[Rfam]
RNA sequence: AAAAAUGAGACAGGGGUCAUUGUAGAACUGUGCUCGUUGCGACCCCCGCCGGCCCUUUUCAGGGCUGCAAUUCUACA
Numbered sequence: 001a002a003a004a005a006u007g008a009g010a011c012a013g014g015g016g017u018c019a020u021u022g023u024a025g026a027a028c029u030g031u032g033c034u035c036g037u038u039g040c041g042a043c044c045c046c047c048g049c050c051g052g053c054c055c056u057u058u059u060c061a062g063g064g065c066u067g068c069a070a071u072u073c074u075a076c077a
Stems, first nucleotide, its partner, number of pairs: 013046006021077007029039002050067007
Annotation
The family of this 77-nucleotide RNA sequence from Parnassius apollo is "Mammalian CPEB3 ribozyme". The mammalian CPEB3 ribozyme is a self cleaving RNA located in the second intron of the CPEB3 gene which belongs to a family of genes regulating messenger RNA polyadenylation. Its family is annotated with RNA nuclease activity in the Gene Ontology. A search with the family's covariance model found it, with a score of 38 bits.